[Rfam]
RNA sequence: GGUUGAGGUAGAGGAGCGAUACCUAAUAGUAGCUAUAUGGAGGUCGGAAACCUUAGAAGUAUAGUGAAAGGAGUUAUCGCCGAAGCGAUAGAUACCAAAAUCUAUUGCUGGGUCUACAUCUAAUAGGUGUAGGACUGUCAUCAGGUGGUUGCCCUGCUAUCUGAUGGAGUGCUAUCUCAUUA
Numbered sequence: 001g002g003u004u005g006a007g008g009u010a011g012a013g014g015a016g017c018g019a020u021a022c023c024u025a026a027u028a029g030u031a032g033c034u035a036u037a038u039g040g041a042g043g044u045c046g047g048a049a050a051c052c053u054u055a056g057a058a059g060u061a062u063a064g065u066g067a068a069a070g071g072a073g074u075u076a077u078c079g080c081c082g083a084a085g086c087g088a089u090a091g092a093u094a095c096c097a098a099a100a101u102c103u104a105u106u107g108c109u110g111g112g113u114c115u116a117c118a119u120c121u122a123a124u125a126g127g128u129g130u131a132g133g134a135c136u137g138u139c140a141u142c143a144g145g146u147g148g149u150u151g152c153c154c155u156g157c158u159a160u161c162u163g164a165u166g167g168a169g170u171g172c173u174a175u176c177u178c179a180u181u182a
Base pairs, nucleotide, nucleotide: 006177007176008175009174010173011172016080017079018078019077020076021075023073024072032065033064034063035062036061037060038059084109085108086107087106088105089104090103091102092101093100110136111135113133114132115131116130117129118128119127120126138167139166140165141164142163143162144161145160146159147158148157
The family of this 182-nucleotide sequence from Paramaledivibacter caminithermalis is "Lysine riboswitch aptamer".
Rfam links the family to the GO term lysine biosynthetic process.